[Rfam]
RNA sequence: UAUUUAAUUGAUUUUAUUAAUAGUUAUAUAUUUAUUUUAAAGAUUAAGUUAUAUAUAUUUAAAUAUAAAUAAUUAUACGGCGAAAUUACGAAUAACUUAUUAAAUUAAUUAUCGUUUAUUUAAUAACCUUUUAUUACUUAAAUAACCGUAAUAAUUUUAAAGUUAAUAUAUAUUAAAAACCCCGACUUUAAAAGGGAUAUAUUUAUUAAAUUAAAAAUUAAUGCCCCUCGGGGUUUAUUAAUAAUUUAUAAUAAUUUAUUAAAUCGUACGGCUUUACGCCGGCGAUAACUUAUUUAAAUUUCUAUUUUAUUAACUUUUAACGAUUAAAUUUAAGCCCGUUAUAGUAAUAACGAGUAACGGAAGGUUAAGGCUCGGCCCCGGAAAAAGAGCUUAAGAAACGGCUACUAUAUUUAAGGAAGGUAAUAAGCGCGUAAAUUACUUAAUCCCGACUCGGGGAGAUAGUAAUAAUAAAUAUUAAUAUAAGGCUUUUUUAGGUCUUAUAAUUAAAAUAAGUAUAAUUUAAUUCCCUUAACGAGGAAUAAUUAAAGGGUAAGUUUAGUAUUAAUAACCGCGGUAAUUUUAGCUUUAAUAACGUAUAUU
Dot-bracket structure: ...(((((.......))))).(((.((((.((..(.(((.((.....(((.(((...(...(((.....(.........)....))))........((.......((...((..((....(((...............((....((..(((.....)))..)).....))........(.(((..........))).)....((((((........((((...(((....))).....))))......)))))).........((((.((((.....))))))))....)))...))))...)).(((....(((....(.(((.............))).))))......)))...(((..(((....))).....)))))..(..(((..........)))..).(.((....)).)...)))))).).....(.(.(...(((((...))))).).)).)..))).).....(((((((((((((....)))))))))).)))......(((.(...........)).)).........((((((.......((((......(....)........)))))))))).)).)))))))
This 600-nucleotide part of an RNA from Ophiostoma piceae belongs to the Rfam family "Eukaryotic small subunit ribosomal RNA". Clan: SSU clan. The source organism's lineage runs through Eukaryota, Ascomycota, leotiomyceta, Sordariomycetes and Ophiostoma piceae.